[Rfam]
RNA sequence: GCAAUCUGAAGCUGGCGCACGGCAAUCUGGUCGUAUUCCGCUCGCUGCUGGGAAUCUCGUGGAUGUGGUUCUUCGGCGCCGUGUUCCUGUCGCAAUUUCCGUCCUUCGCCAAGGAGGUGCUG
Numbered sequence: 001g002c003a004a005u006c007u008g009a010a011g012c013u014g015g016c017g018c019a020c021g022g023c024a025a026u027c028u029g030g031u032c033g034u035a036u037u038c039c040g041c042u043c044g045c046u047g048c049u050g051g052g053a054a055u056c057u058c059g060u061g062g063a064u065g066u067g068g069u070u071c072u073u074c075g076g077c078g079c080c081g082u083g084u085u086c087c088u089g090u091c092g093c094a095a096u097u098u099c100c101g102u103c104c105u106u107c108g109c110c111a112a113g114g115a116g117g118u119g120c121u122g
Stems, first nucleotide, its partner, number of pairs: 010049003014045001017042001021038002025034002051121002054118002057115002060112001062110001063105001065103001067099002072094001074092005081086001
This 122-nucleotide sequence from Roseateles toxinivorans belongs to the Rfam family "Burkholderia RNA 11". Rfam describes the family as follows. Co-purified with Hfq, expression confirmed by Northern blot. Predicted target marZ. Overlaps coding sequence. The organism belongs to Roseateles, within Bacteria.